[Rfam]
The family of this 76-nucleotide RNA sequence from Callithrix jacchus is "mir-320 microRNA precursor family". The family has 38 seed sequences and 659 matches in Rfam 15.1. Rfam links the family to the GO terms cellular response to glucose stimulus, long-term synaptic potentiation and RISC complex. Pairs were carried over by alignment from the consensus structure, which was predicted with RNAalifold. A search with the family's covariance model found it, with a score of 85 bits.
RNA sequence: GGCAUGAUGGGCCUUCUCUUUCCAGUUCUUCCCAGAAUUGGGAAAAGCUGGGUUGAGAGAGUAAAAAAAGAAAAAC
Numbered sequence: 001g002g003c004a005u006g007a008u009g010g011g012c013c014u015u016c017u018c019u020u021u022c023c024a025g026u027u028c029u030u031c032c033c034a035g036a037a038u039u040g041g042g043a044a045a046a047g048c049u050g051g052g053u054u055g056a057g058a059g060a061g062u063a064a065a066a067a068a069a070g071a072a073a074a075a076c
Stems, first nucleotide, its partner, number of pairs: 014059005021052005029044006